[Rfam]
RNA sequence: ACAAUUUUCUGCUGCGCAUUGGGGCACUACUGUUUUUUUUUAAUUGAGUAUUGCACUUUUCACAGCCUUAAAAUGU
Numbered sequence: 001a002c003a004a005u006u007u008u009c010u011g012c013u014g015c016g017c018a019u020u021g022g023g024g025c026a027c028u029a030c031u032g033u034u035u036u037u038u039u040u041u042a043a044u045u046g047a048g049u050a051u052u053g054c055a056c057u058u059u060u061c062a063c064a065g066c067c068u069u070a071a072a073a074u075g076u
Stems, first nucleotide, its partner, number of pairs: 001076003005072003011066001013064002016061001021056001023054001025053002028050004
A member of the RNA family "mir-310 microRNA precursor family" from Drosophila sechellia, 76 nucleotides long. The organism belongs to Sophophora, within Eukaryota. Rfam 15.1 lists 60 matches to the family in 29 species. It scores 68 bits against the family's covariance model. Its family is annotated with head involution, RISC complex and segmentation in the Gene Ontology.